[Rfam]
RNA: skipping-rope RNA
RNA sequence: GAUUUUGGAGGUAGAAGAAUUCGUCCACGUCUACACGCCGAUGGUUUGACAGGAGGUAACUCCGAGAGAUGCGGGAGCUAUUGGACGCCCGCCCAAAAUC
Numbered sequence: 001g002a003u004u005u006u007g008g009a010g011g012u013a014g015a016a017g018a019a020u021u022c023g024u025c026c027a028c029g030u031c032u033a034c035a036c037g038c039c040g041a042u043g044g045u046u047u048g049a050c051a052g053g054a055g056g057u058a059a060c061u062c063c064g065a066g067a068g069a070u071g072c073g074g075g076a077g078c079u080a081u082u083g084g085a086c087g088c089c090c091g092c093c094c095a096a097a098a099u100c
Base pairs, nucleotide, nucleotide: 001100002099003098004097005096006095007094008093011034012033013032014031015030023086036066037057038056039055071092072091073090074089075088